[Rfam]
RNA sequence: GAAGACCCUGUUGAGCUUUGACUCUAGUCUGGUUUUGUGGAAUGAGUCGAGAGGUGUAGCAUAAGUGGGAGCUUCGGCAACAGUGAAAUACCACUACUCUUGGUCUUUUUCCACUCACCCCGUUAGUCCGGAGGCGGCCUCGGUUGUUUACCUAGGCUCUCCUUUAUUGUUUGUGUAAUCUGGGAGAACAUCUCCCUCUCGGGAAGUUUCUCCUACCGGUACGGAGGACAUAACCAGGUGGGGAGUUUGGCUGGGGCGGCACAUCUGCUAAAAGAUAACGCAGGUGUCCUAAGAUGAGCUCAGUGAGAACAGCAAUCUCAUGUGGAGUAGAAGGGCAAAAGCUCAUUUGAUUUGGAUUUUCAGUACGAAUACAAACUGUGAAAGCAUGGCCUAUCGAUCCUUUACGACUUCGAAGUAUGAAGCUAGAGGUGUCAGAAAAGUUACCACAGGGAUAACUGGCUUGUGGCAGCCGAGCGUUCAUAGCGACGUUGCUUUUUGAUCCUUCGAUGUCGGCUCUUCCUAUCAUUGUGAAGCAGAAUUCACAAAGCGUUGGAUUGUUCACCCACUGACAGGGAACGUGAGCUGGGUUUA
Numbered sequence: 001g002a003a004g005a006c007c008c009u010g011u012u013g014a015g016c017u018u019u020g021a022c023u024c025u026a027g028u029c030u031g032g033u034u035u036u037g038u039g040g041a042a043u044g045a046g047u048c049g050a051g052a053g054g055u056g057u058a059g060c061a062u063a064a065g066u067g068g069g070a071g072c073u074u075c076g077g078c079a080a081c082a083g084u085g086a087a088a089u090a091c092c093a094c095u096a097c098u099c100u101u102g103g104u105c106u107u108u109u110u111c112c113a114c115u116c117a118c119c120c121c122g123u124u125a126g127u128c129c130g131g132a133g134g135c136g137g138c139c140u141c142g143g144u145u146g147u148u149u150a151c152c153u154a155g156g157c158u159c160u161c162c163u164u165u166a167u168u169g170u171u172u173g174u175g176u177a178a179u180c181u182g183g184g185a186g187a188a189c190a191u192c193u194c195c196c197u198c199u200c201g202g203g204a205a206g207u208u209u210c211u212c213c214u215a216c217c218g219g220u221a222c223g224g225a226g227g228a229c230a231u232a233a234c235c236a237g238g239u240g241g242g243g244a245g246u247u248u249g250g251c252u253g254g255g256g257c258g259g260c261a262c263a264u265c266u267g268c269u270a271a272a273a274g275a276u277a278a279c280g281c282a283g284g285u286g287u288c289c290u291a292a293g294a295u296g297a298g299c300u301c302a303g304u305g306a307g308a309a310c311a312g313c314a315a316u317c318u319c320a321u322g323u324g325g326a327g328u329a330g331a332a333g334g335g336c337a338a339a340a341g342c343u344c345a346u347u348u349g350a351u352u353u354g355g356a357u358u359u360u361c362a363g364u365a366c367g368a369a370u371a372c373a374a375a376c377u378g379u380g381a382a383a384g385c386a387u388g389g390c391c392u393a394u395c396g397a398u399c400c401u402u403u404a405c406g407a408c409u410u411c412g413a414a415g416u417a418u419g420a421a422g423c424u425a426g427a428g429g430u431g432u433c434a435g436a437a438a439a440g441u442u443a444c445c446a447c448a449g450g451g452a453u454a455a456c457u458g459g460c461u462u463g464u465g466g467c468a469g470c471c472g473a474g475c476g477u478u479c480a481u482a483g484c485g486a487c488g489u490u491g492c493u494u495u496u497u498g499a500u501c502c503u504u505c506g507a508u509g510u511c512g513g514c515u516c517u518u519c520c521u522a523u524c525a526u527u528g529u530g531a532a533g534c535a536g537a538a539u540u541c542a543c544a545a546a547g548c549g550u551u552g553g554a555u556u557g558u559u560c561a562c563c564c565a566c567u568g569a570c571a572g573g574g575a576a577c578g579u580g581a582g583c584u585g586g587g588u589u590u591a
Stems, first nucleotide, its partner, number of pairs: 007450004012446002014442005021246004028238007037114006044107003047103007064095005071078002118226001120224003128219004136158005175213001177211001249262001250260003263285006288389002294346006300326002303321006327336002351375004356370004377386003400428005408422004459500001461498001463497001465493006474484002511586001512584004516578001517575005524549001527544006551565003555561001
Dot-bracket structure: ......((((.(((((((..((((...(((((((..((((((.((((((((((..........(((((..((....))............))))).))))))).))).))))))...(.(((.....((((....(((((.............)))))................(.(.................................).)..))))..))).).....)))))))....))))..((((.....))).)((((((...........))))))..((....((((((((.((((((.......))))))...))((......))....))))))....((((.((((.......)))).)))).(((....))).))..........(((((...((((.......)))).))))).........)))))..))))))........(.(.(.((((((...((.......))...))))))...)).)..........(((((((((((..(..((((((......))))))....).(((.(.....).))).....)))))..)..)))).).....
RNA: Eukaryotic large subunit ribosomal RNA, nucleotides 2668 to 3258